[Rfam]
RNA: mir-1302 microRNA precursor family
RNA sequence: AUUUCAUCAUAAGUAUAUCCCAUGUAAUAUUUGGGACAUACUUAUAGUAAAA
Numbered sequence: 001a002u003u004u005c006a007u008c009a010u011a012a013g014u015a016u017a018u019c020c021c022a023u024g025u026a027a028u029a030u031u032u033g034g035g036a037c038a039u040a041c042u043u044a045u046a047g048u049a050a051a052a
Stems, first nucleotide, its partner, number of pairs: 006048002009045004014040003018036004022031001